[Rfam]
RNA sequence: CGCCUAUUUUGCCCAGGCGGAGCUCGACCGCCGAUCCAAGUCAUGACGGCGUUCAUCGCUGAACACAGCGACAGUUACGGAGUCGAGCCGAUCUGCAAGGUACUGCCGAUCGCUCCG
Numbered sequence: 001c002g003c004c005u006a007u008u009u010u011g012c013c014c015a016g017g018c019g020g021a022g023c024u025c026g027a028c029c030g031c032c033g034a035u036c037c038a039a040g041u042c043a044u045g046a047c048g049g050c051g052u053u054c055a056u057c058g059c060u061g062a063a064c065a066c067a068g069c070g071a072c073a074g075u076u077a078c079g080g081a082g083u084c085g086a087g088c089c090g091a092u093c094u095g096c097a098a099g100g101u102a103c104u105g106c107c108g109a110u111c112g113c114u115c116c117g
Stems, first nucleotide, its partner, number of pairs: 016032005078117005089112002092109002095106003

The family of this 117-nucleotide RNA sequence from Tahibacter aquaticus is "ALIL pseudoknot". Rfam links the family to the GO term positive regulation of translational frameshifting. NCBI's taxonomy places the organism under Bacteria, Pseudomonadati, Pseudomonadota, Rhodanobacteraceae, Tahibacter. It scores 115 bits against the family's covariance model.